[Rfam]
RNA sequence: CAUUCUGGCAGUCGCUGCGUUUUAACGCAGAGGAAAGUCCAUGCUCGCACAGUCUGAGAUGACUGUAGUGUUCGUGCCUGACGAAACAAUAAGUCAGGGCAGUCCGGCUGUACCGCUGGACUGACGGCGGGGAAUAGACCUGUGUCCUUAGGAUAUGGUCUUAUUACCCUGAAAAGUGCCACAGUGACGGAGCCCGUUUGGAAACAAGCGGGGUGGAACGAGGUAAACCCCUCGAGCGAGAAACCCAAAUAUUGGUAGGGGCGCCUUUCUGAAGGAAUAAAACGGAAAGAAAGGGCAGAGCAUAAUGCUUUGCAGAUAGAUGACUGCCACCGGAGUGCGAGGUGAAUAACCGUAACAGCACAAAGGGACAGAACAUGGCUUACUAGA
Numbered sequence: 001c002a003u004u005c006u007g008g009c010a011g012u013c014g015c016u017g018c019g020u021u022u023u024a025a026c027g028c029a030g031a032g033g034a035a036a037g038u039c040c041a042u043g044c045u046c047g048c049a050c051a052g053u054c055u056g057a058g059a060u061g062a063c064u065g066u067a068g069u070g071u072u073c074g075u076g077c078c079u080g081a082c083g084a085a086a087c088a089a090u091a092a093g094u095c096a097g098g099g100c101a102g103u104c105c106g107g108c109u110g111u112a113c114c115g116c117u118g119g120a121c122u123g124a125c126g127g128c129g130g131g132g133a134a135u136a137g138a139c140c141u142g143u144g145u146c147c148u149u150a151g152g153a154u155a156u157g158g159u160c161u162u163a164u165u166a167c168c169c170u171g172a173a174a175a176g177u178g179c180c181a182c183a184g185u186g187a188c189g190g191a192g193c194c195c196g197u198u199u200g201g202a203a204a205c206a207a208g209c210g211g212g213g214u215g216g217a218a219c220g221a222g223g224u225a226a227a228c229c230c231c232u233c234g235a236g237c238g239a240g241a242a243a244c245c246c247a248a249a250u251a252u253u254g255g256u257a258g259g260g261g262c263g264c265c266u267u268u269c270u271g272a273a274g275g276a277a278u279a280a281a282a283c284g285g286a287a288a289g290a291a292a293g294g295g296c297a298g299a300g301c302a303u304a305a306u307g308c309u310u311u312g313c314a315g316a317u318a319g320a321u322g323a324c325u326g327c328c329a330c331c332g333g334a335g336u337g338c339g340a341g342g343u344g345a346a347u348a349a350c351c352g353u354a355a356c357a358g359c360a361c362a363a364a365g366g367g368a369c370a371g372a373a374c375a376u377g378g379c380u381u382a383c384u385a386g387a
Base pairs, nucleotide, nucleotide: 004387005386006385007383008327009326010325011324012323013322015030016029017028018027019026020025035381036380037379039378040377041376042375043374044240045239046238047237048236049066050065051064052063053062054061072235073234074233076231077098078097079096080095081094082093099125100123101122102121103120104119105118106117107116108115126230127229129169130168131167137160138159139158140157144154145153146152176228177227178224179223180222193212194211195210196209197208198207199206200205244260245259246258264294265293266292267291268290269289270288295313296312297311298310299309300308301307302306330366331365335361336360337359338358
Record summary:
Rfam assigns this 387-nucleotide RNA from Alteribacillus iranensis to the family "Bacterial RNase P class B". Gene Ontology terms of the family: ribonuclease P activity, dimeric ribonuclease P complex and tRNA processing. About the family: Ribonuclease P (RNase P) is a ubiquitous endoribonuclease, found in archaea, bacteria and eukarya as well as chloroplasts and mitochondria. On this family, see Frank and Pace, Annu Rev Biochem 1998: "Ribonuclease P: unity and diversity in a tRNA processing ribozyme". By type it is a ribozyme.